FGF-1 internal ribosome entry site (IRES): a 166-nucleotide RNA from Prolemur simus.
Rfam 15.1 lists 127 matches to the family in 125 species.
Pairs were carried over by alignment from the consensus structure, which is taken from published work.
This family represents the FGF-1 internal ribosome entry site (IRES). The FGF-1 IRES is present in the 5' UTR of the mRNA and allows cap-independent translation.

[Rfam]
RNA sequence: CACUCCAGGGGAGUGAGGGCAUCGCCUCCUUUUCUUGGAGGACACUCCCUUCUGGUGGUGAAUGGGAACUCCCUUCCUCCUGCGGCAGCCUGCCUGCGGCGGUCCCGGCUGUACAGUGUGGACGCUGCAAAGCUGCCACUGCCCGGGGAAGAAAGCAGCCCAGAGC
Numbered sequence: 001c002a003c004u005c006c007a008g009g010g011g012a013g014u015g016a017g018g019g020c021a022u023c024g025c026c027u028c029c030u031u032u033u034c035u036u037g038g039a040g041g042a043c044a045c046u047c048c049c050u051u052c053u054g055g056u057g058g059u060g061a062a063u064g065g066g067a068a069c070u071c072c073c074u075u076c077c078u079c080c081u082g083c084g085g086c087a088g089c090c091u092g093c094c095u096g097c098g099g100c101g102g103u104c105c106c107g108g109c110u111g112u113a114c115a116g117u118g119u120g121g122a123c124g125c126u127g128c129a130a131a132g133c134u135g136c137c138a139c140u141g142c143c144c145g146g147g148g149a150a151g152a153a154a155g156c157a158g159c160c161c162a163g164a165g166c
Base pairs, nucleotide, nucleotide: 003165004164005163008161009160010159014152016050017049018048019047025041026040027039028038029037051148052147053146058079060076061075062074064073065072066071084140085139086135087134088133089132095129096128097127098126099125100124105120